About this RNA: A member of the RNA family "mir-194 microRNA precursor family" from Rattus norvegicus, 82 nucleotides long. It is one of the family's seed sequences. For this family Rfam cites "New microRNAs from mouse and human" (Lagos-Quintana et al., RNA, 2003). Rfam links the family to the GO terms RISC complex and miRNA-mediated post-transcriptional gene silencing. The base pairs follow the family's consensus structure, which was predicted with RNAalifold.
[Rfam]
RNA sequence: UGGAGUCAUCACGUGUAACAGCAACUCCAUGUGGACUGUGCACAGAUCCCAGUGGAGCUGCUGUUACUUUUGAUGGCCUCCA
Numbered sequence: 001u002g003g004a005g006u007c008a009u010c011a012c013g014u015g016u017a018a019c020a021g022c023a024a025c026u027c028c029a030u031g032u033g034g035a036c037u038g039u040g041c042a043c044a045g046a047u048c049c050c051a052g053u054g055g056a057g058c059u060g061c062u063g064u065u066a067c068u069u070u071u072g073a074u075g076g077c078c079u080c081c082a
Stems, first nucleotide, its partner, number of pairs: 009073003015067008025057006032051003